[Rfam]
RNA: mir-1994 microRNA precursor family
Nucleotides: 066
Base pairs, nucleotide, nucleotide: 002064003063006059007058008057010055011054014052015051017049018048019047021045022044025042026041027040
Number, partner (000 for none) and nucleotide at each position: 001000u002064c003063u004000c005000a006059g007058g008057g009000u010055g011054g012000u013000a014052a015051u016000g017049c018048u019047g020000c021045c022044u023000a024000c025042a026041u027040g028000g029000u030000g031000a032000g033000g034000u035000g036000a037000c038000a039000a040027c041026a042025u043000g044022a045021g046000a047019c048018a049017g050000u051015g052014u053000g054011u055010c056000c057008u058007c059006c060000c061000u062000a063003a064002g065000u066000u